[Rfam]
RNA sequence: AGCCUCCUGGUGCUUACUGUAGGCUGUGUGCUUACACUGACUGUAUAGAAAGAAGAGCAAGGUAAACCUACCCCACAUACGCCUCAGCCCAGGUCCUGUGCCUGGUCAGUGUUGUGAAUGGUGAAACAUGG
Numbered sequence: 001a002g003c004c005u006c007c008u009g010g011u012g013c014u015u016a017c018u019g020u021a022g023g024c025u026g027u028g029u030g031c032u033u034a035c036a037c038u039g040a041c042u043g044u045a046u047a048g049a050a051a052g053a054a055g056a057g058c059a060a061g062g063u064a065a066a067c068c069u070a071c072c073c074c075a076c077a078u079a080c081g082c083c084u085c086a087g088c089c090c091a092g093g094u095c096c097u098g099u100g101c102c103u104g105g106u107c108a109g110u111g112u113u114g115u116g117a118a119u120g121g122u123g124a125a126a127c128a129u130g131g
Stems, first nucleotide, its partner, number of pairs: 002058001004057003008053001020043003026037004071123001073121003085109001087107001089105006

Source information
Small nucleolar RNA SNORA51: a 131-nucleotide RNA from Castor canadensis. Pairs were carried over by alignment from the consensus structure, which was predicted with PFOLD. The match comes from Rfam's covariance-model search (114 bits). Gene Ontology terms of the family: nucleolus and RNA processing.